[Rfam]
RNA sequence: CGCGCUGUCAUUGGGGAGUAGCCGCUGCACCCCGCCCGUCGCCCGACGGGCUUACUCAGCAGACCCGCGUCAACAGACUUGAGCUUGUGCUCAUGGCGCGAGGUAGCCAGGAACCGUCGUGUUCCCAGCCUGGC
Numbered sequence: 001c002g003c004g005c006u007g008u009c010a011u012u013g014g015g016g017a018g019u020a021g022c023c024g025c026u027g028c029a030c031c032c033c034g035c036c037c038g039u040c041g042c043c044c045g046a047c048g049g050g051c052u053u054a055c056u057c058a059g060c061a062g063a064c065c066c067g068c069g070u071c072a073a074c075a076g077a078c079u080u081g082a083g084c085u086u087g088u089g090c091u092c093a094u095g096g097c098g099c100g101a102g103g104u105a106g107c108c109a110g111g112a113a114c115c116g117u118c119g120u121g122u123u124c125c126c127a128g129c130c131u132g133g134c
Stems, first nucleotide, its partner, number of pairs: 026061003063104003066100007080093005106134006